[Rfam]
RNA sequence: CCGUGCAGCCGGGGAGUUAGCGGCACCUUGUACCUGCAAUCCGCUAUAGCAGGGGUGAUGUUCGGCAGAGGGCGAGAUUUUAUGGAGCCGCCCGAUAUAAGUGGUGAUGACAUCUGGGUCUUCCGCAACAGGAAUUCAUGAACCAUGUCAGGUCAGGAAUGAAGCAGCAUUAAGUGAAACCUUCUGUGUGCCGGAAGGCAGCCUGGAUCGAGCUAACUGUAUCGGUAACGUCUGUGGAUGAUCAUUCGAAGCCGGGCGCACGG
Dot-bracket structure: ((((((.(((((((.(((...))).))))...(((((...........))))))))....((((((...(((.(....((((((((...(..((((((..(((((......((((((((((((((((.(((((.(((((.....((((....(((....)))....))))...)))))...)))))))...))))))...))))))))...))).)).)))))).)....))))))))....).)))...)))))).))))))
About this RNA:
The family of this 263-nucleotide RNA sequence from Eubacterium sp. CAG:248 is "Bacterial large signal recognition particle RNA". Rfam's curators write: The signal recognition particle (SRP) is a universally conserved ribonucleoprotein involved in the co-translational targeting of proteins to membranes. Clan: SRP clan.